[Rfam]
RNA sequence: GAACAUAUGAAGCCGAGUCCCGCGCGUCCCCGCCGCAGAAGGCAGUGGGGGAGUGAGGGAGCCGGGGACCCACAUGCACGGGCCCGCGGGCCGCACCUGGGGUUAAUGCUCACGAGGAUGUCCACCACCGUUAGCGGAGGGCACGGAGUGCGCAGGGCUGUUCUCAGCCCAACCCGUCAGCUAACCCGGUAGGCAAGAGAAGAUAU
Numbered sequence: 001g002a003a004c005a006u007a008u009g010a011a012g013c014c015g016a017g018u019c020c021c022g023c024g025c026g027u028c029c030c031c032g033c034c035g036c037a038g039a040a041g042g043c044a045g046u047g048g049g050g051g052a053g054u055g056a057g058g059g060a061g062c063c064g065g066g067g068a069c070c071c072a073c074a075u076g077c078a079c080g081g082g083c084c085c086g087c088g089g090g091c092c093g094c095a096c097c098u099g100g101g102g103u104u105a106a107u108g109c110u111c112a113c114g115a116g117g118a119u120g121u122c123c124a125c126c127a128c129c130g131u132u133a134g135c136g137g138a139g140g141g142c143a144c145g146g147a148g149u150g151c152g153c154a155g156g157g158c159u160g161u162u163c164u165c166a167g168c169c170c171a172a173c174c175c176g177u178c179a180g181c182u183a184a185c186c187c188g189g190u191a192g193g194c195a196a197g198a199g200a201a202g203a204u205a206u
Stems, first nucleotide, its partner, number of pairs: 012194003018060003061190006071099002100175003109152001155170004
The record is a 206-nucleotide sequence from Corynebacterium mycetoides, which matches "c-di-AMP riboswitch aptamer (ydaO/yuaA leader)" in Rfam. This family represents a conserved RNA structure found upstream of the ydaO and yuaA genes in Bacillus subtilis and related genes in other bacteria. It scores 52 bits against the family's covariance model. Gene Ontology terms of the family: regulation of gene expression and cyclic-di-AMP binding.